[Rfam]
RNA sequence: UCGCACGACGCACCCCGGGCUUCUCUGAAUUAUUGGGUGACGAAGAACGCCCCAAUGCUCGUGCUAGAACGCCGCCAUUCAGUGUUGCAGUUUAGCCCCGUACCUCUUUCCCACGGCUGAUCUGUGUCAAAGCAAUGGCCACAUGU
Numbered sequence: 001u002c003g004c005a006c007g008a009c010g011c012a013c014c015c016c017g018g019g020c021u022u023c024u025c026u027g028a029a030u031u032a033u034u035g036g037g038u039g040a041c042g043a044a045g046a047a048c049g050c051c052c053c054a055a056u057g058c059u060c061g062u063g064c065u066a067g068a069a070c071g072c073c074g075c076c077a078u079u080c081a082g083u084g085u086u087g088c089a090g091u092u093u094a095g096c097c098c099c100g101u102a103c104c105u106c107u108u109u110c111c112c113a114c115g116g117c118u119g120a121u122c123u124g125u126g127u128c129a130a131a132g133c134a135a136u137g138g139c140c141a142c143a144u145g146u
Stems, first nucleotide, its partner, number of pairs: 003064006010058002017052004022046002024043002074139006083129002086126005095117003
RNA: small nucleolar RNA snoR134
Organism: Nyssa sinensis